[Rfam]
RNA sequence: UCCCCGCUUUUCCUCCCUGAGCGGGUGCCUUAAUGUGUGACAGCAAAAAGGCUUCCCAACCCCGGCUUGAUCGCCGGGGUUUUUUUU
Number, nucleotide and partner (000 for none) at each position: 001u000002c000003c025004c024005c023006g022007c021008u020009u000010u000011u000012c000013c000014u000015c000016c000017c000018u000019g000020a008021g007022c006023g005024g004025g003026u000027g052028c051029c050030u049031u048032a000033a000034u000035g000036u000037g000038u000039g000040a000041c000042a000043g000044c000045a000046a000047a000048a031049a030050g029051g028052c027053u000054u000055c000056c000057c000058a000059a000060c079061c078062c077063c076064g075065g074066c073067u000068u000069g000070a000071u000072c000073g066074c065075c064076g063077g062078g061079g060080u000081u000082u000083u000084u000085u000086u000087u000

This 87-nucleotide sequence from Ramlibacter humi belongs to the Rfam family "Burkholderia RNA 7 (anti-hemB)". Rfam describes the family as follows. This RNA motif was identified by computational search in b-proteobacteria Burkholderia. Co-purified with Hfq, expression confirmed by Northern blot. Rfam 15.1 lists 479 matches to the family in 458 species. The family's RNA type in Rfam is small RNA. Pairs were carried over by alignment from the consensus structure, which is taken from published work.